[Rfam]
RNA sequence: CGGUUUAAUCGUGUUAAGGGAACUCGGCAAAUUGGCCCCGUAACUUUGGGAUAAGGGGUGCCUGCCUGGCGAUCAGGCAGGUCGCAGUGACCAGGGGGCUCUGACUGUCUAAUAACAACAUAGGUGACUGCAACUCGGAAACGACUAGUAUAGUCACUGAUUCCUGCCCAGUGCGAGUAUCUGAACACCGGGUUCAACCGGACGAAGGACUCGUAAACGGCGGGGGUAACUAUGACCCUCUUAAGGUAGCGUAGUACCUUGUCGCUUAAUUGGCGACUUGCAUGAAUGGAUUAACGAGAGCCCUACUGUCCCUAACACGAAGCCGUUGAACAUUUUAUCCUAGUGCAGAGACUAGGGA
Numbered sequence: 001c002g003g004u005u006u007a008a009u010c011g012u013g014u015u016a017a018g019g020g021a022a023c024u025c026g027g028c029a030a031a032u033u034g035g036c037c038c039c040g041u042a043a044c045u046u047u048g049g050g051a052u053a054a055g056g057g058g059u060g061c062c063u064g065c066c067u068g069g070c071g072a073u074c075a076g077g078c079a080g081g082u083c084g085c086a087g088u089g090a091c092c093a094g095g096g097g098g099c100u101c102u103g104a105c106u107g108u109c110u111a112a113u114a115a116c117a118a119c120a121u122a123g124g125u126g127a128c129u130g131c132a133a134c135u136c137g138g139a140a141a142c143g144a145c146u147a148g149u150a151u152a153g154u155c156a157c158u159g160a161u162u163c164c165u166g167c168c169c170a171g172u173g174c175g176a177g178u179a180u181c182u183g184a185a186c187a188c189c190g191g192g193u194u195c196a197a198c199c200g201g202a203c204g205a206a207g208g209a210c211u212c213g214u215a216a217a218c219g220g221c222g223g224g225g226g227u228a229a230c231u232a233u234g235a236c237c238c239u240c241u242u243a244a245g246g247u248a249g250c251g252u253a254g255u256a257c258c259u260u261g262u263c264g265c266u267u268a269a270u271u272g273g274c275g276a277c278u279u280g281c282a283u284g285a286a287u288g289g290a291u292u293a294a295c296g297a298g299a300g301c302c303c304u305a306c307u308g309u310c311c312c313u314a315a316c317a318c319g320a321a322g323c324c325g326u327u328g329a330a331c332a333u334u335u336u337a338u339c340c341u342a343g344u345g346c347a348g349a350g351a352c353u354a355g356g357g358a
Base pairs, nucleotide, nucleotide: 001325002324003323004322009320010319011318012317013316014315015314016313018311019310020309035059036058037057038056039055044049060082061081062080063079064078065077066076067075068074083087095304096303097302098301099300100299101298102296103295106120107119108118123158124157125156126155127154128153129152130151131148135144136143137142162290163289164288166221167220168219171218172217173214174213175212176211177210180209181208182207188201189200190199191198222240223239224238225237226236227235241245261277262276263275264274265273266272339356340355341354342353343352
The family of this 358-nucleotide part of an RNA from Methanoculleus marisnigri is "Archaeal large subunit ribosomal RNA". Taxonomically the source falls in Methanoculleus marisnigri (Archaea, Methanobacteriati, Methanomicrobiales, Methanoculleus). Rfam's curators put it in the seed alignment. Pairs were carried over by alignment from the consensus structure, which is taken from published work.